Rfam assigns this 296-nucleotide RNA from Absidia repens to the family "Metazoan signal recognition particle RNA". The family's consensus secondary structure is taken from published work. Taxonomically the source falls in Absidia (Eukaryota, Mucoromycota, Mucoromycotina, Mucorales). The match comes from Rfam's covariance-model search (118 bits). It is annotated as a non-coding RNA gene. Rfam describes the family as follows. The signal recognition particle (SRP) is a universally conserved ribonucleoprotein.

[Rfam]
RNA sequence: ACUGGAAAGUAUAACGUCUUUCUGUAAGCUGAGUGGCGGUCUUCGAAGGGAUGAAUUCAUUCAUUGGUGGAAUAACGGUUAUUGGGUUGCCUUGUAGAAAGUAGUGUCUUACAGAGUAUGGUGUCAACAUUCGGGUCUGAGCGUAGGCUCUGGGCACGGAGGUUGUUCAAUAUCGAGGUAAUGCCCGAGGGUAGUAAUACAGCAGGGAAAACUCGAAGCACUGAUACGGCUGUGAGAUGGCACACUGGAGAGGAUUUAUCGAAUAAUUGCCAUCAAGGAUGGGAACUACCCCUUUU
Numbered sequence: 001a002c003u004g005g006a007a008a009g010u011a012u013a014a015c016g017u018c019u020u021u022c023u024g025u026a027a028g029c030u031g032a033g034u035g036g037c038g039g040u041c042u043u044c045g046a047a048g049g050g051a052u053g054a055a056u057u058c059a060u061u062c063a064u065u066g067g068u069g070g071a072a073u074a075a076c077g078g079u080u081a082u083u084g085g086g087u088u089g090c091c092u093u094g095u096a097g098a099a100a101g102u103a104g105u106g107u108c109u110u111a112c113a114g115a116g117u118a119u120g121g122u123g124u125c126a127a128c129a130u131u132c133g134g135g136u137c138u139g140a141g142c143g144u145a146g147g148c149u150c151u152g153g154g155c156a157c158g159g160a161g162g163u164u165g166u167u168c169a170a171u172a173u174c175g176a177g178g179u180a181a182u183g184c185c186c187g188a189g190g191g192u193a194g195u196a197a198u199a200c201a202g203c204a205g206g207g208a209a210a211a212c213u214c215g216a217a218g219c220a221c222u223g224a225u226a227c228g229g230c231u232g233u234g235a236g237a238u239g240g241c242a243c244a245c246u247g248g249a250g251a252g253g254a255u256u257u258a259u260c261g262a263a264u265a266a267u268u269g270c271c272a273u274c275a276a277g278g279a280u281g282g283g284a285a286c287u288a289c290c291c292c293u294u295u296u
Stems, first nucleotide, its partner, number of pairs: 001040003004023006028037003045295006052288001054287001056285003060281001062278001064276007076269008086260001090253004095248001100246003104243004108236007116227004120222005125165004130160004135155005140149003166172001173216005182209001184207003191200003